[Rfam]
Nucleotides: 110
Base pairs, nucleotide, nucleotide: 001047002046003045004044011040012039013038014037015036016035017033018032019031020030021029023078024077025076026075061105062104063103082093083092084091085090
Number, partner (000 for none) and nucleotide at each position: 001047g002046a003045a004044c005000g006000u007000u008000g009000a010000a011040g012039c013038g014037g015036u016035u017033g018032g019031c020030g021029u022000u023078c024077c025076g026075a027000u028000u029021g030020c031019g032018u033017u034000g035016g036015g037014c038013c039012g040011u041000g042000g043000a044004g045003u046002u047001c048000u049000c050000g051000g052000a053000g054000g055000g056000g057000u058000u059000u060000u061105g062104c063103a064000a065000c066000a067000a068000c069000c070000u071000c072000a073000a074000g075026u076025c077024g078023g079000a080000u081000a082093g083092g084091c085090u086000g087000a088000a089000a090085g091084g092083c093082c094000g095000a096000a097000a098000g099000a100000a101000a102000a103063u104062g105061c106000a107000a108000c109000g110000a

A member of the RNA family "drum RNA", 110 nucleotides long. Pairs were carried over by alignment from the consensus structure, which is taken from published work. From the family's description: Firmicutes, Bacteroidetes (1 example), Proteobacteria (2 examples), Spirochaetes (2 examples).